[Rfam]
RNA sequence: UUUAUGGUGGGAGCAGUGCUUGCCACCUUUUGCAAGAGGGGAUAGAUCGACGUCAAGAAAUCGUUUCAGUUGCCAUGUCUCCAGUAGGCAAUAUGAUUGUUGCUUGACCACAG
Numbered sequence: 001u002u003u004a005u006g007g008u009g010g011g012a013g014c015a016g017u018g019c020u021u022g023c024c025a026c027c028u029u030u031u032g033c034a035a036g037a038g039g040g041g042a043u044a045g046a047u048c049g050a051c052g053u054c055a056a057g058a059a060a061u062c063g064u065u066u067c068a069g070u071u072g073c074c075a076u077g078u079c080u081c082c083a084g085u086a087g088g089c090a091a092u093a094u095g096a097u098u099g100u101u102g103c104u105u106g107a108c109c110a111c112a113g
Base pairs, nucleotide, nucleotide: 004029006027007026008025009024011021012020013019014018052108054106055105056104057103060097061096062095063094069092070091071090072089073088074087078084